Source information: A member of the RNA family "MIR1120/MIR1122 microRNA precursor family" from Aegilops tauschii, 88 nucleotides long. The source organism's lineage runs through Eukaryota, Euphyllophyta, commelinids, Pooideae and Aegilops tauschii.
RNA sequence: GUACUCCCUCCGUCCCGAAAUGUAAGACGUUUUUUGAUACUAUGAUAGUGUCAAAAAAACAUCUUACAUUUUGGGACGGAGGGAGUAU
Numbered sequence: 001g002u003a004c005u006c007c008c009u010c011c012g013u014c015c016c017g018a019a020a021u022g023u024a025a026g027a028c029g030u031u032u033u034u035u036g037a038u039a040c041u042a043u044g045a046u047a048g049u050g051u052c053a054a055a056a057a058a059a060c061a062u063c064u065u066a067c068a069u070u071u072u073g074g075g076a077c078g079g080a081g082g083g084a085g086u087a088u
Stems, first nucleotide, its partner, number of pairs: 003086003007082005013076005019070009029060004033055009
The family's consensus secondary structure was predicted with RNAalifold. The match comes from Rfam's covariance-model search (88 bits).